[Rfam]
RNA sequence: UGGGUGAGCAACAAGUGCGGGUCUGGCGGAGCGCGGUGGCGCGCGGAGACCGAGAGGCGACCGGGAGCGGCUGGGCCCCCGGCGGCGCGCCCCUCGGCAGGGCCGAGAGUCGCGUCAGUCGGUGCCCCCGGCCGAGUGCGGUCCGCCUCCCUUUCAGCGGCCCUCCGCCCGGAGCGCGGCCAGGGGGCAUGUCAGAUCCACCAGAGGCGCCGCCGCCGGCGCUCGCAGGCCGCGGGUGAAGAAAAAAGUGCGGCUUCACUCGGCCCAGAGCGAAGAGGUGGCUGGAAGCAAAGAGGUAGUCGGGAGCGAAGAGGUGGUCCAGAGCGAAGAGGUGGCCCCAAGCGAAGAGGUGGCCCCAAGCGAAGAGGUG
Numbered sequence: 001u002g003g004g005u006g007a008g009c010a011a012c013a014a015g016u017g018c019g020g021g022u023c024u025g026g027c028g029g030a031g032c033g034c035g036g037u038g039g040c041g042c043g044c045g046g047a048g049a050c051c052g053a054g055a056g057g058c059g060a061c062c063g064g065g066a067g068c069g070g071c072u073g074g075g076c077c078c079c080c081g082g083c084g085g086c087g088c089g090c091c092c093c094u095c096g097g098c099a100g101g102g103c104c105g106a107g108a109g110u111c112g113c114g115u116c117a118g119u120c121g122g123u124g125c126c127c128c129c130g131g132c133c134g135a136g137u138g139c140g141g142u143c144c145g146c147c148u149c150c151c152u153u154u155c156a157g158c159g160g161c162c163c164u165c166c167g168c169c170c171g172g173a174g175c176g177c178g179g180c181c182a183g184g185g186g187g188c189a190u191g192u193c194a195g196a197u198c199c200a201c202c203a204g205a206g207g208c209g210c211c212g213c214c215g216c217c218g219g220c221g222c223u224c225g226c227a228g229g230c231c232g233c234g235g236g237u238g239a240a241g242a243a244a245a246a247a248g249u250g251c252g253g254c255u256u257c258a259c260u261c262g263g264c265c266c267a268g269a270g271c272g273a274a275g276a277g278g279u280g281g282c283u284g285g286a287a288g289c290a291a292a293g294a295g296g297u298a299g300u301c302g303g304g305a306g307c308g309a310a311g312a313g314g315u316g317g318u319c320c321a322g323a324g325c326g327a328a329g330a331g332g333u334g335g336c337c338c339c340a341a342g343c344g345a346a347g348a349g350g351u352g353g354c355c356c357c358a359a360g361c362g363a364a365g366a367g368g369u370g
Stems, first nucleotide, its partner, number of pairs: 020104005026098002038093002041090002044052003061082005067076002144352006167188004206223007257272001259270003
About this RNA: This 370-nucleotide RNA from Phyllostomus discolor belongs to the Rfam family "Bag-1 internal ribosome entry site (IRES)". Rfam links the family to the GO term ribosome binding. The family's consensus secondary structure was predicted with PFOLD. About the family: This family represents the bag-1 internal ribosome entry site (IRES). When expressed the BAG-1 protein is known to enhance the anti-apoptotic properties of Bcl-2. Although bag-1 translation usually occurs via a cap-dependent mechanism it has been found to contain a IRES in its 5' UTR. Translation via the IRES has been found to be common following heat shock when cap-dependent scanning is compromised. A search with the family's covariance model found it, with a score of 322 bits.